[Rfam]
RNA sequence: GCGGGCUGCUGAAUUAGAGAUCGGCACCCAUACAUUCAUUUUUUUAUCUGGAGUUUAUUAUGUCUCUAAGCGUAGAAGCUAAAGCAGAGAUCGUUGCUAAAUUCGGUCGUGGUGCU
Numbered sequence: 001g002c003g004g005g006c007u008g009c010u011g012a013a014u015u016a017g018a019g020a021u022c023g024g025c026a027c028c029c030a031u032a033c034a035u036u037c038a039u040u041u042u043u044u045u046a047u048c049u050g051g052a053g054u055u056u057a058u059u060a061u062g063u064c065u066c067u068a069a070g071c072g073u074a075g076a077a078g079c080u081a082a083a084g085c086a087g088a089g090a091u092c093g094u095u096g097c098u099a100a101a102u103u104c105g106g107u108c109g110u111g112g113u114g115c116u
Stems, first nucleotide, its partner, number of pairs: 007026006047070001049068005
Ribosomal S15 leader: a 116-nucleotide sequence from Pantoea vagans. The base pairs follow the family's consensus structure, which is taken from published work. Its family is annotated with regulation of translation, ncRNA-mediated in the Gene Ontology. The E. coli Ribosomal S15 gene 5' UTR can form two alternative structures. One that is a series of three hairpins, The other includes a pseudoknot. This structure causes translational regulation of the S15 protein.